[Rfam]
RNA sequence: AUAAUGAUACUCCCGUACAGCCACAGUCCGAGCGUUAGAAGCGUCGCACACAAUGGGUACGGCUGUAUGAGAACCAUACAGGGCUGAAAUGCUGUGG
Numbered sequence: 001a002u003a004a005u006g007a008u009a010c011u012c013c014c015g016u017a018c019a020g021c022c023a024c025a026g027u028c029c030g031a032g033c034g035u036u037a038g039a040a041g042c043g044u045c046g047c048a049c050a051c052a053a054u055g056g057g058u059a060c061g062g063c064u065g066u067a068u069g070a071g072a073a074c075c076a077u078a079c080a081g082g083g084c085u086g087a088a089a090u091g092c093u094g095u096g097g
Stems, first nucleotide, its partner, number of pairs: 012094001013062006063081003067077003082093003
pemK RNA: a 97-nucleotide RNA sequence from Blautia pseudococcoides. It is annotated as a cis-regulatory element.